[Rfam]
RNA sequence: GUCGAGCUUGGUAGCGUGGGCUUGUGAUCCAAGUGGAGACAAUAAGGUGAUGGGACAUUUAAUCGUGCCUCAUUGGGCCGGGUUUGUGUUGGGCUAUAUUUGGCCUGUCCAUUCCAAGUUGGGAGUUGAUGCAUGGUGCUUGAGCAAAGGCUUGGGCUUCAUGGAUCCUAUAGCGGAGGAGACUGCGUUAGGCUGGUUUCACAGAGCAGCGUCCACCUCCCGCUCUUGACGGUGGAAGGAGAACGGGCCUUUGCCUUCCGGAUCCACUAUGACCCAUUAAGACGUCGAGCUCGGUAGUAUACAUUG
Numbered sequence: 001g002u003c004g005a006g007c008u009u010g011g012u013a014g015c016g017u018g019g020g021c022u023u024g025u026g027a028u029c030c031a032a033g034u035g036g037a038g039a040c041a042a043u044a045a046g047g048u049g050a051u052g053g054g055a056c057a058u059u060u061a062a063u064c065g066u067g068c069c070u071c072a073u074u075g076g077g078c079c080g081g082g083u084u085u086g087u088g089u090u091g092g093g094c095u096a097u098a099u100u101u102g103g104c105c106u107g108u109c110c111a112u113u114c115c116a117a118g119u120u121g122g123g124a125g126u127u128g129a130u131g132c133a134u135g136g137u138g139c140u141u142g143a144g145c146a147a148a149g150g151c152u153u154g155g156g157c158u159u160c161a162u163g164g165a166u167c168c169u170a171u172a173g174c175g176g177a178g179g180a181g182a183c184u185g186c187g188u189u190a191g192g193c194u195g196g197u198u199u200c201a202c203a204g205a206g207c208a209g210c211g212u213c214c215a216c217c218u219c220c221c222g223c224u225c226u227u228g229a230c231g232g233u234g235g236a237a238g239g240a241g242a243a244c245g246g247g248c249c250u251u252u253g254c255c256u257u258c259c260g261g262a263u264c265c266a267c268u269a270u271g272a273c274c275c276a277u278u279a280a281g282a283c284g285u286c287g288a289g290c291u292c293g294g295u296a297g298u299a300u301a302c303a304u305u306g
Base pairs, nucleotide, nucleotide: 001040002039003038004023005022006021007020008019009018010017028037029036030035043306044305045304047302048301049300051299052298055295056294058289059288060287068281070280072278074276075275076274077273079271080265081264082263083262084261085260086259091256092255093254095253096252102249103248104247105246106245107244108243109239110238112237113236114235115234116233118230119229120228121227122226123225124224125223126222128167129166130165132163133162134161135160136159138157139156140155141154142153143152144151145150168173175220176219177218178217179216185212186211187210188209193204194203195202